RNA sequence: UGGGCUGUCAACAAGCGCGGGCCUGGCGGAGCACGGCGGCGCGCGGAGACCGAGAGGCAACAGCGAGCGGCUGGGCUCCCGGCGGCGCGCCCCUCGGCAAGGCCGGGAGUCGCGCCAGUCGGAGCCCCCAGCCGAGCGCGGCCCUCCUGCCUCUCAGCGUACAUCAGUCCGGAGUGCAGCCAGCGGGUAUGACCGACCCACCAGGGGCGCCGCCGCCGGCGCUCUCAGGCCGCGGGUGAAGAAGAAAGUACGGUCCCGCUUGGUCCGGAGCGAGGAGGUGGCCCCGAGCAAGGAGGUGGCCCAGAGCAAGGAGGUGGCCCGGAGCAAGGAGGUGGCCCGGAGCGAGGAGGCCCAGAAAGAGGAGGCC
Number, nucleotide and partner (000 for none) at each position: 001u000002g000003g000004g000005c000006u000007g000008u000009c000010a000011a000012c000013a000014a000015g000016c000017g000018c000019g000020g104021g103022c102023c101024u100025g000026g098027c097028g000029g000030a000031g000032c000033a000034c000035g000036g000037c000038g093039g092040c000041g090042c089043g000044c052045g051046g050047a000048g000049a000050c046051c045052g044053a000054g000055a000056g000057g000058c000059a000060a000061c082062a000063g080064c000065g078066a077067g076068c075069g000070g000071c000072u000073g000074g000075g068076c067077u066078c065079c000080c063081g000082g061083c000084g000085g000086c000087g000088c000089g042090c041091c000092c039093c038094u000095c000096g000097g027098c026099a000100a024101g023102g022103c021104c020105g000106g000107g000108a000109g000110u000111c000112g000113c000114g000115c000116c000117a000118g000119u000120c000121g000122g000123a000124g000125c000126c000127c000128c000129c000130a000131g000132c000133c000134g000135a000136g000137c000138g000139c000140g000141g000142c000143c000144c349145u348146c347147c346148u000149g000150c000151c000152u000153c000154u000155c000156a000157g000158c000159g000160u000161a000162c000163a000164u000165c000166a000167g188168u187169c186170c185171g184172g000173a000174g000175u000176g000177c000178a000179g000180c000181c000182a000183g000184c171185g170186g169187g168188u167189a000190u000191g000192a000193c000194c000195g000196a000197c000198c000199c000200a000201c000202c000203a000204g000205g224206g223207g222208c221209g220210c219211c218212g217213c000214c000215g000216c000217c212218g211219g210220c209221g208222c207223u206224c205225u000226c000227a000228g000229g000230c000231c000232g000233c000234g000235g000236g000237u000238g000239a000240a000241g000242a000243a000244g000245a000246a000247a000248g000249u000250a000251c000252g000253g000254u000255c000256c000257c272258g271259c270260u269261u268262g000263g000264u000265c000266c000267g000268g261269a260270g259271c258272g257273a000274g000275g000276a000277g000278g000279u000280g000281g000282c000283c000284c000285c000286g000287a000288g000289c000290a000291a000292g000293g000294a000295g000296g000297u000298g000299g000300c000301c000302c000303a000304g000305a000306g000307c000308a000309a000310g000311g000312a000313g000314g000315u000316g000317g000318c000319c000320c000321g000322g000323a000324g000325c000326a000327a000328g000329g000330a000331g000332g000333u000334g000335g000336c000337c000338c000339g000340g000341a000342g000343c000344g000345a000346g147347g146348a145349g144350g000351c000352c000353c000354a000355g000356a000357a000358a000359g000360a000361g000362g000363a000364g000365g000366c000367c000